[Rfam]
RNA sequence: CUCUUAUUGAGAGUGGCAGAGGGACUAGGCCCUAUGACGCCCGGCAACCUUCAAGUUUUCUUGAAAAGGUGCUAAAUCCUACAGGUCGUUGGAUCUGGAAGAUAAGAG
Numbered sequence: 001c002u003c004u005u006a007u008u009g010a011g012a013g014u015g016g017c018a019g020a021g022g023g024a025c026u027a028g029g030c031c032c033u034a035u036g037a038c039g040c041c042c043g044g045c046a047a048c049c050u051u052c053a054a055g056u057u058u059u060c061u062u063g064a065a066a067a068g069g070u071g072c073u074a075a076a077u078c079c080u081a082c083a084g085g086u087c088g089u090u091g092g093a094u095c096u097g098g099a100a101g102a103u104a105a106g107a108g
Stems, first nucleotide, its partner, number of pairs: 001108008013042001015041003021032003026081004043073004048069002050065004077100001082097006
RNA: SAM riboswitch aptamer (S box leader)